[Rfam]
RNA sequence: GGAAACUGAUUUCAUCUGGUGACGUAGAUGUUUGUACCCAGUCUCUAGCACCAUAUGAAAUCAGUGUUCU
Numbered sequence: 001g002g003a004a005a006c007u008g009a010u011u012u013c014a015u016c017u018g019g020u021g022a023c024g025u026a027g028a029u030g031u032u033u034g035u036a037c038c039c040a041g042u043c044u045c046u047a048g049c050a051c052c053a054u055a056u057g058a059a060a061u062c063a064g065u066g067u068u069c070u
Base pairs, nucleotide, nucleotide: 001070002069003068004067005065006064007063008062009061010060011059012058013057014056017053018052019051020050021049025047026046027045028044
RNA: mir-29 microRNA precursor family